[Rfam]
RNA sequence: GGUUUCCGUUGGUGCAAAUCCAAUCAACUCAAUUUGAGAUGAGAAGCAAUUCCCCAUUGGUGGCAAAUGAUUGAUUAUUCAUUAAGCGGGGGGGAAAGUAUU
Numbered sequence: 001g002g003u004u005u006c007c008g009u010u011g012g013u014g015c016a017a018a019u020c021c022a023a024u025c026a027a028c029u030c031a032a033u034u035u036g037a038g039a040u041g042a043g044a045a046g047c048a049a050u051u052c053c054c055c056a057u058u059g060g061u062g063g064c065a066a067a068u069g070a071u072u073g074a075u076u077a078u079u080c081a082u083u084a085a086g087c088g089g090g091g092g093g094g095a096a097a098g099u100a101u102u
Stems, first nucleotide, its partner, number of pairs: 009023004052091004056082002059079005
RNA: Plastid-rps12 3UTR RNA